[Rfam]
Record summary:
A member of the RNA family "Plastid-psbN 5UTR RNA" from Oculatella sp. FACHB-28, 61 nucleotides long. The organism belongs to Oculatella, within Bacteria. The base pairs follow the family's consensus structure, which was predicted with LocARNA. Plastid psbN is a non-coding RNA (ncRNA) recognised in plastids. It is annotated as a cis-regulatory element. It scores 52 bits against the family's covariance model.
RNA sequence: AAAGACAGCCAUCAGUGGUGUCGUUCCCCAACCGGGAGCAACCUUACCGUAUUCAGAGUUU
Numbered sequence: 001a002a003a004g005a006c007a008g009c010c011a012u013c014a015g016u017g018g019u020g021u022c023g024u025u026c027c028c029c030a031a032c033c034g035g036g037a038g039c040a041a042c043c044u045u046a047c048c049g050u051a052u053u054c055a056g057a058g059u060u061u
Stems, first nucleotide, its partner, number of pairs: 017045002020042002023039005